Notes
Rfam assigns this 136-nucleotide RNA from Leiothrix lutea to the family "Small Cajal body specific RNA 3". By type it is a small Cajal body RNA. Gene Ontology terms of the family: RNA processing, Cajal body and nucleolus. Its Rfam clan is "SCARNA3 clan". The source organism's lineage runs through Eukaryota, Gnathostomata, Tetrapoda, Amniota and Leiothrix. Rfam 15.1 lists 642 matches to the family in 535 species. scaRNAs are a specific class of small nuclear RNAs which localise to the Cajal bodies and guide the modification of RNA polymerase II transcribed spliceosomal RNAs U1, U2, U4, U5 and U12. For this family Rfam cites "Cajal body-specific small nuclear RNAs: a novel class of 2'-O-methylation and pseudouridylation guide RNAs" (Darzacq et al., EMBO J, 2002). The match comes from Rfam's covariance-model search (98 bits).
[Rfam]
RNA sequence: GCAGGGACCAGUUGGGUCCAGUCAUGGGCAGAAUGAAUAUUUUUUUGUCCACCAUUGCAGUCUUCCUAGAGCAAAGUGGAGGUCUCUGUCUGCUUUAGGACAGCCAACUAAAUCAGAUCGUUCCCCUCCUUACACA
Numbered sequence: 001g002c003a004g005g006g007a008c009c010a011g012u013u014g015g016g017u018c019c020a021g022u023c024a025u026g027g028g029c030a031g032a033a034u035g036a037a038u039a040u041u042u043u044u045u046u047g048u049c050c051a052c053c054a055u056u057g058c059a060g061u062c063u064u065c066c067u068a069g070a071g072c073a074a075a076g077u078g079g080a081g082g083u084c085u086c087u088g089u090c091u092g093c094u095u096u097a098g099g100a101c102a103g104c105c106a107a108c109u110a111a112a113u114c115a116g117a118u119c120g121u122u123c124c125c126c127u128c129c130u131u132a133c134a135c136a
Stems, first nucleotide, its partner, number of pairs: 004066003009060001011058002025051001028050001030048001035044003078129005086120001088118003092114001094112005